[Rfam]
Nucleotides: 158
Base pairs, nucleotide, nucleotide: 003157004156006154007153008151009150012144013143014142015141016140017139018138019137020136021134023132025130027129028128029127035123036122037121041119042118043117048112049111050110051109054105055104059100060099063097072088073087074086
Number, partner (000 for none) and nucleotide at each position: 001000u002000c003157u004156a005000g006154a007153a008151c009150u010000c011000c012144a013143g014142a015141u016140a017139u018138g019137g020136g021134c022000c023132a024000a025130a026000c027129a028128c029127u030000g031000a032000a033000c034000a035123a036122u037121g038000u039000u040000c041119g042118g043117a044000c045000u046000g047000u048112a049111g050110g051109a052000c053000a054105g055104a056000u057000u058000c059100g060099g061000a062000c063097u064000u065000c066000u067000c068000c069000g070000u071000u072088g073087u074086u075000g076000c077000u078000a079000u080000a081000a082000u083000u084000u085000a086074g087073a088072c089000u090000u091000g092000c093000a094000a095000a096000c097063a098000a099060c100059u101000u102000u103000c104055u105054u106000a107000g108000a109051u110050c111049u112048u113000g114000g115000u116000g117043u118042c119041c120000a121037c122036a123035u124000g125000a126000a127029a128028g129027u130025u131000g132023u133000a134021g135000a136020c137019c138018u139017a140016u141015g142014u143013c144012u145000u146000a147000c148000u149000g150009a151008g152000u153007u154006u155000g156004u157003g158000u
Shown here is a 158-nucleotide RNA sequence from Populus tomentosa, a member of the family "MIR2912 microRNA precursor family". The family has 2 seed sequences and 15,051 matches in Rfam 15.1. Taxonomically the source falls in Populus (Eukaryota, Tracheophyta, Euphyllophyta, rosids). Pairs were carried over by alignment from the consensus structure, which was predicted with RNAalifold.